Background
ASpks TB sRNA: a 75-nucleotide RNA sequence from Streptomyces sp. 150FB. The source organism's lineage runs through Bacteria, Bacillati, Actinomycetes, Kitasatosporales and Streptomyces. A search with the family's covariance model found it, with a score of 73 bits. Rfam 15.1 lists 9,052 matches to the family in 683 species.
RNA sequence: CUUCACAGAGCCGAGCCACAGCCGUUGGUCCCCGUCGCGGUCCUGCCCGUACGUCGCGAGCAGCGCCUGCGCCUC
Numbered sequence: 001c002u003u004c005a006c007a008g009a010g011c012c013g014a015g016c017c018a019c020a021g022c023c024g025u026u027g028g029u030c031c032c033c034g035u036c037g038c039g040g041u042c043c044u045g046c047c048c049g050u051a052c053g054u055c056g057c058g059a060g061c062a063g064c065g066c067c068u069g070c071g072c073c074u075c
Base pairs, nucleotide, nucleotide: 014026015025016024031071033069038065039064043060044059047056049054